[Rfam]
RNA: mir-23 microRNA precursor family
Organism: Taeniopygia guttata
RNA sequence: UUUGGGUUCCUGGCAUGAUGAUUUGUGACUUAAGAUUAAAAUCACAUUGCCAGGGAUUACCACGCAGCC
Numbered sequence: 001u002u003u004g005g006g007u008u009c010c011u012g013g014c015a016u017g018a019u020g021a022u023u024u025g026u027g028a029c030u031u032a033a034g035a036u037u038a039a040a041a042u043c044a045c046a047u048u049g050c051c052a053g054g055g056a057u058u059a060c061c062a063c064g065c066a067g068c069c
Base pairs, nucleotide, nucleotide: 001064003062004061005060006057007056008055009054010053011052012051013050014049015048016046017045019044020043021042022041023040024039
Dot-bracket structure: (.(((((((((((((((.((((((..............)))))))).))))))))))..))).).....